[Rfam]
RNA sequence: CUGCGCAUGUCUGAAUACUUGCUCACUAAGCUCCACGCUGAGAACCUGGUUUCUCCCCACCAUGCUUAGGGGAAAGUCCCCGGACACUGAACAGAGAUGUUCCGCCUAAACGGCCAAUCAUGAGCUUGUAACGAUACUACUUCCUGCCAAGACGUCACUUCCGGGCUGAGCAGCGUAUCACAAGCCAUGUUGGUCAUCACAAGAGAAAUGCAGGUACUGUGUGACACCGGAACUGAACGGGGCUCAAUCUCAGACUGCGCA
Numbered sequence: 001c002u003g004c005g006c007a008u009g010u011c012u013g014a015a016u017a018c019u020u021g022c023u024c025a026c027u028a029a030g031c032u033c034c035a036c037g038c039u040g041a042g043a044a045c046c047u048g049g050u051u052u053c054u055c056c057c058c059a060c061c062a063u064g065c066u067u068a069g070g071g072g073a074a075a076g077u078c079c080c081c082g083g084a085c086a087c088u089g090a091a092c093a094g095a096g097a098u099g100u101u102c103c104g105c106c107u108a109a110a111c112g113g114c115c116a117a118u119c120a121u122g123a124g125c126u127u128g129u130a131a132c133g134a135u136a137c138u139a140c141u142u143c144c145u146g147c148c149a150a151g152a153c154g155u156c157a158c159u160u161c162c163g164g165g166c167u168g169a170g171c172a173g174c175g176u177a178u179c180a181c182a183a184g185c186c187a188u189g190u191u192g193g194u195c196a197u198c199a200c201a202a203g204a205g206a207a208a209u210g211c212a213g214g215u216a217c218u219g220u221g222u223g224a225c226a227c228c229g230g231a232a233c234u235g236a237a238c239g240g241g242g243c244u245c246a247a248u249c250u251c252a253g254a255c256u257g258c259g260c261a
Stems, first nucleotide, its partner, number of pairs: 002261005010254005017215006026069006040055005075244002078242004090101004104115001106113002119189003124185006134178004144173004154166003217229001219227003

This 261-nucleotide sequence from Bagarius yarrelli belongs to the Rfam family "RNase MRP". Taxonomically the source falls in Bagarius (Eukaryota, Actinopteri, Otophysi, Characiphysae). Rfam 15.1 lists 3,510 matches to the family in 2,315 species. It is annotated as a ribozyme.